Shown here is an 89-nucleotide RNA sequence from Neodrepanis coruscans, a member of the family "Small nucleolar RNA SNORD70". About the family: snoRNA HBII-234 belongs to the C/D family of snoRNAs. On this family, see Huttenhofer et al., EMBO J 2001: "RNomics: an experimental approach that identifies 201 candidates for novel, small, non-messenger RNAs in mouse". Gene Ontology terms of the family: nucleolus and RNA processing. By type it is a C/D-box small nucleolar RNA.
[Rfam]
RNA sequence: UAGUCUGUUGUCAAUGAUGGAUUCUUGUUGAAGCUGAGUAGAAAUGAUUGGAGUCAAUAGUUCGUCACUACCACUGAGACGACAGACAG
Numbered sequence: 001u002a003g004u005c006u007g008u009u010g011u012c013a014a015u016g017a018u019g020g021a022u023u024c025u026u027g028u029u030g031a032a033g034c035u036g037a038g039u040a041g042a043a044a045u046g047a048u049u050g051g052a053g054u055c056a057a058u059a060g061u062u063c064g065u066c067a068c069u070a071c072c073a074c075u076g077a078g079a080c081g082a083c084a085g086a087c088a089g
Stems, first nucleotide, its partner, number of pairs: 001089001003087010